This 85-nucleotide RNA from Populus trichocarpa belongs to the Rfam family "MIR1444 microRNA precursor family". Taxonomically the source falls in Populus (Eukaryota, Viridiplantae, Tracheophyta, Mesangiospermae). Gene Ontology terms of the family: miRNA-mediated post-transcriptional gene silencing and RISC complex.
RNA sequence: UUUAUCCCUCGAAUAUUGAUCGAAUAUGUAUGAAAUAUGAUGGUUAAAUGUUUCAUUCACAUUCGGUCAACGUUCGAGUGAUAAA
Numbered sequence: 001u002u003u004a005u006c007c008c009u010c011g012a013a014u015a016u017u018g019a020u021c022g023a024a025u026a027u028g029u030a031u032g033a034a035a036u037a038u039g040a041u042g043g044u045u046a047a048a049u050g051u052u053u054c055a056u057u058c059a060c061a062u063u064c065g066g067u068c069a070a071c072g073u074u075c076g077a078g079u080g081a082u083a084a085a
Base pairs, nucleotide, nucleotide: 001085002084003083004082005081006080008078009077010076011075012074013073016070017069018068019067020066021065022064023063024062025061027059028058030056031055032054033053034052035051036050
Dot-bracket structure: ((((((.((((((..((((((((((.((.(((((((.............))))))).)).))))))))))..)))))).))))))